The family of this 114-nucleotide RNA from Hevea brasiliensis is "U5 spliceosomal RNA". A search with the family's covariance model found it, with a score of 71 bits. The family's RNA type in Rfam is spliceosomal small nuclear RNA.
RNA sequence: CGCCAUGUAGUAAGCACAAAGCGAACUAUUCUUUCGCCUUUUACUAAAAUACCGUGUGCUUACUAUUAAUAAUGGCUUACGUUUAUUUUUGGAUGGCCGAUCUCAUUAGAGCAC
Number, nucleotide and partner (000 for none) at each position: 001c000002g000003c075004c074005a073006u072007g000008u065009a064010g063011u062012a061013a060014g059015c058016a057017c056018a055019a000020a000021g000022c000023g000024a000025a000026c000027u051028a050029u049030u000031c000032u048033u047034u046035c000036g000037c000038c000039u000040u000041u000042u000043a000044c000045u000046a034047a033048a032049a029050u028051a027052c000053c000054g000055u018056g017057u016058g015059c014060u013061u012062a011063c010064u009065a008066u000067u000068a000069a000070u000071a000072a006073u005074g004075g003076c000077u000078u000079a000080c000081g000082u000083u000084u000085a000086u000087u000088u000089u000090u000091g000092g000093a000094u000095g000096g000097c000098c000099g114100a000101u000102c111103u110104c109105a000106u000107u000108a000109g104110a103111g102112c000113a000114c099